[Rfam]
RNA sequence: GAGACACCCGUCUGGGGCAAGACUUGCUUCAAUGGGGCUUUGGUGCUCACUGAGUCUGCCCCCUGAGUGUCUCC
Numbered sequence: 001g002a003g004a005c006a007c008c009c010g011u012c013u014g015g016g017g018c019a020a021g022a023c024u025u026g027c028u029u030c031a032a033u034g035g036g037g038c039u040u041u042g043g044u045g046c047u048c049a050c051u052g053a054g055u056c057u058g059c060c061c062c063c064u065g066a067g068u069g070u071c072u073c074c
Base pairs, nucleotide, nucleotide: 001073002072003071004070005069006068007067009065010064014062015061016060017059018058019057021056022055023054029053030052031051033049034048035047036046037044038043
Background: A member of the RNA family "mir-9229 microRNA precursor family" from Myotis myotis, 74 nucleotides long. It scores 77 bits against the family's covariance model.